[Rfam]
RNA sequence: CAGUGGGUGAAAGCCCCACCCGGCGAACGCUCCAGCCGGAAGCAACCGGAGCAGGCAUGGAGGAGACGAAAUGUCUGAAGCCUCUGGAUAGAGCGGUCACGACUUGGUGACCGUGCGCGUGUGCAGGCCGCAACGUGA
Numbered sequence: 001c002a003g004u005g006g007g008u009g010a011a012a013g014c015c016c017c018a019c020c021c022g023g024c025g026a027a028c029g030c031u032c033c034a035g036c037c038g039g040a041a042g043c044a045a046c047c048g049g050a051g052c053a054g055g056c057a058u059g060g061a062g063g064a065g066a067c068g069a070a071a072u073g074u075c076u077g078a079a080g081c082c083u084c085u086g087g088a089u090a091g092a093g094c095g096g097u098c099a100c101g102a103c104u105u106g107g108u109g110a111c112c113g114u115g116c117g118c119g120u121g122u123g124c125a126g127g128c129c130g131c132a133a134c135g136u137g138a
Stems, first nucleotide, its partner, number of pairs: 020039005047086005052077006062067001095112006115131003
RNA: Group II catalytic intron D1-D4-4